[Rfam]
RNA: Small nucleolar RNA SNORD93
RNA sequence: GGGCCAGUGAUGAGAACUUUAACCUGACUGGAUACGCACCUGCUCUGAUGGGUUAAAGGAUUUACCUGAGGCCA
Numbered sequence: 001g002g003g004c005c006a007g008u009g010a011u012g013a014g015a016a017c018u019u020u021a022a023c024c025u026g027a028c029u030g031g032a033u034a035c036g037c038a039c040c041u042g043c044u045c046u047g048a049u050g051g052g053u054u055a056a057a058g059g060a061u062u063u064a065c066c067u068g069a070g071g072c073c074a
Stems, first nucleotide, its partner, number of pairs: 002073004